The family of this 128-nucleotide RNA from Nannospalax galili is "Small nucleolar RNA SNORA28". By type it is an H/ACA-box small nucleolar RNA.
RNA sequence: UAGCAAUACUCUAUAGCAUAUGAACAAUACUGUCUGAUGCAAUUUGAGCUCUAUAGCAAGAAAAUCUCACCUAUUCCGGUGUGUUCUCUUCCCCCAUGAGACAACCCGUUAUUAUAGGCUCAAACAAU
Numbered sequence: 001u002a003g004c005a006a007u008a009c010u011c012u013a014u015a016g017c018a019u020a021u022g023a024a025c026a027a028u029a030c031u032g033u034c035u036g037a038u039g040c041a042a043u044u045u046g047a048g049c050u051c052u053a054u055a056g057c058a059a060g061a062a063a064a065u066c067u068c069a070c071c072u073a074u075u076c077c078g079g080u081g082u083g084u085u086c087u088c089u090u091c092c093c094c095c096a097u098g099a100g101a102c103a104a105c106c107c108g109u110u111a112u113u114a115u116a117g118g119c120u121c122a123a124a125c126a127a128u
Base pairs, nucleotide, nucleotide: 009048010047011046012041014039015038017036018035020033021032022031063120065118066117067116072114073112074111077108078107079106085101086100087099088098

About the family: ACA28 is a member of the H/ACA class of snoRNA that guide the sites of modification of uridines to pseudouridines. For this family Rfam cites "RNomics: an experimental approach that identifies 201 candidates for novel, small, non-messenger RNAs in mouse" (Huttenhofer et al., EMBO J, 2001).